[Rfam]
RNA sequence: CCACGGGAUGAAUCCCGUGGCUACAUUCAGUUAUCCCUCCGGGAUU
Numbered sequence: 001c002c003a004c005g006g007g008a009u010g011a012a013u014c015c016c017g018u019g020g021c022u023a024c025a026u027u028c029a030g031u032u033a034u035c036c037c038u039c040c041g042g043g044a045u046u
Stems, first nucleotide, its partner, number of pairs: 001020008033045005
Source information:
The record is a 46-nucleotide RNA from Gracilimonas mengyeensis, which matches "Acido-Lenti-1 RNA" in Rfam. The match comes from Rfam's covariance-model search (39 bits). The family's RNA type in Rfam is small RNA. The family's consensus secondary structure is taken from published work.